[Rfam]
RNA sequence: GGUUUUAACCCAGUAUCUCAAGGUACUACGGGUGUCCGACCUACCACUAGUGGUUGCGUCGAAAACCUCAAUUUUUGGAUCGCCUUCCCGGGGUAUCGGAGAGGGCAAA
Number, nucleotide and partner (000 for none) at each position: 001g000002g000003u000004u000005u000006u000007a000008a035009c032010c031011c000012a000013g029014u028015a000016u025017c000018u023019c000020a000021a000022g000023g018024u000025a016026c000027u000028a014029c013030g000031g010032g009033u000034g000035u008036c000037c061038g060039a059040c058041c056042u000043a054044c053045c052046a000047c000048u000049a000050g000051u000052g045053g044054u043055u000056g041057c000058g040059u039060c038061g037062a000063a000064a000065a000066c000067c000068u000069c000070a000071a000072u000073u000074u000075u000076u000077g000078g000079a000080u000081c000082g000083c000084c000085u107086u000087c105088c104089c103090g000091g000092g000093g097094u000095a000096u000097c093098g000099g000100a000101g000102a000103g089104g088105g087106c000107a085108a000109a000
Shown here is a 109-nucleotide RNA from Ancylostoma caninum, a member of the family "SL2 RNA".
It scores 56 bits against the family's covariance model.
Rfam 15.1 lists 598 matches to the family in 38 species.
Rfam links the family to the GO term mRNA trans splicing, via spliceosome.
It is annotated as a non-coding RNA gene.
The base pairs follow the family's consensus structure, which is taken from published work.
This family represents SL2 RNA. SL2 RNA is involved in trans splicing in lower eukaryotes. Trans-splicing is a form of RNA processing.
On this family, see Dassanayake et al., Gene 2001: "Trans-spliced leader RNA, 5S-rRNA genes and novel variant orphan spliced-leader of the lymphatic filarial nematode Wuchereria bancrofti, and a sensitive polymerase chain reaction based detection assay".
Its Rfam clan is "SL clan".